[Rfam]
RNA sequence: CCAAAGGCUCUUUUAAGAGCCACCCACCUUAUCCCUUAAAGAGCUUU
Numbered sequence: 001c002c003a004a005a006g007g008c009u010c011u012u013u014u015a016a017g018a019g020c021c022a023c024c025c026a027c028c029u030u031a032u033c034c035c036u037u038a039a040a041g042a043g044c045u046u047u
Base pairs, nucleotide, nucleotide: 006021007020008019009018010017011016

The family of this 47-nucleotide RNA from Cyprinus carpio is "Histone 3' UTR stem-loop". It is annotated as a cis-regulatory element. Pairs were carried over by alignment from the consensus structure, which is taken from published work. The source organism's lineage runs through Eukaryota, Eumetazoa, Deuterostomia, Craniata and Cyprinus carpio. The mRNAs of metazoan histone genes lack a poly-A tail. 3' end processing occurs at a site between a highly conserved stem-loop (modelled by this family) and a purine rich region around 20 nts downstream (the histone downstream element, or HDE). The stem-loop is bound by a 31 kDa stem-loop binding protein (SLBP - also termed the histone hairpin binding protein, or HBP). Together with U7 snRNA binding of the HDE, SLBP binding nucleate s the formation of the processing complex. The histone 3' UTR stem-loop is also involved in nucleocytoplasmic transport of the mRNA, and in stability regulation and translation efficiency in the cytoplasm. Gene Ontology term of the family: mRNA 3'-end processing by stem-loop binding and cleavage.